[Rfam]
RNA sequence: CGAAAGGGCUCCUGUCGUGAGUGGCACACGUAGGGCAGCUUGAUUGUUCUACGUGCAGAAUCGACGUCAAGAGAUUUCAGCAGCAUAAUCUUUGGGCACCCGGACAGUUAGUGGCCAUUGGUCCUGGCACCCAC
Number, nucleotide and partner (000 for none) at each position: 001c000002g000003a000004a000005a000006g000007g000008g084009c083010u082011c000012c080013u026014g025015u024016c023017g022018u000019g000020a000021g000022u017023g016024g015025c014026a013027c055028a054029c053030g052031u051032a050033g049034g048035g047036c046037a045038g044039c000040u000041u000042g000043a000044u038045u037046g036047u035048u034049c033050u032051a031052c030053g029054u028055g027056c000057a000058g077059a076060a075061u074062c073063g000064a000065c000066g000067u000068c000069a000070a000071g000072a000073g062074a061075u060076u059077u058078c000079a000080g012081c000082a010083g009084c008085a000086u000087a000088a000089u000090c000091u000092u000093u000094g000095g000096g000097c000098a000099c000100c000101c000102g132103g131104a000105c000106a000107g128108u127109u126110a125111g124112u000113g123114g122115c121116c120117a000118u000119u000120g116121g115122u114123c113124c111125u110126g109127g108128c107129a000130c000131c103132c102133a000134c000

The record is a 134-nucleotide sequence from Phyllostomus discolor, which matches "U11 spliceosomal RNA" in Rfam. Taxonomically the source falls in Phyllostomus (Eukaryota, Teleostomi, Dipnotetrapodomorpha, Theria). It is annotated as a spliceosomal small nuclear RNA. The match comes from Rfam's covariance-model search (92 bits).